[Rfam]
RNA sequence: GGCCGAUGAUGCAUUGAGAUGUUUUGUCCGUACCAUCUGAGCGAUCAUUGUUCGAACUUCGAAUGACUUCCUCUGAUGAGUCAUCACCUCUAGAUUCUGAGGCCU
Numbered sequence: 001g002g003c004c005g006a007u008g009a010u011g012c013a014u015u016g017a018g019a020u021g022u023u024u025u026g027u028c029c030g031u032a033c034c035a036u037c038u039g040a041g042c043g044a045u046c047a048u049u050g051u052u053c054g055a056a057c058u059u060c061g062a063a064u065g066a067c068u069u070c071c072u073c074u075g076a077u078g079a080g081u082c083a084u085c086a087c088c089u090c091u092a093g094a095u096u097c098u099g100a101g102g103c104c105u
Stems, first nucleotide, its partner, number of pairs: 001104004
The record is a 105-nucleotide sequence from Actinidia chinensis, which matches "small nucleolar RNA snoR117" in Rfam. Its family is annotated with RNA processing and nucleolus in the Gene Ontology. The source organism's lineage runs through Eukaryota, Streptophyta, Spermatophyta, asterids and Actinidia chinensis. The base pairs follow the family's consensus structure, which was predicted with RNAalifold. A search with the family's covariance model found it, with a score of 48 bits.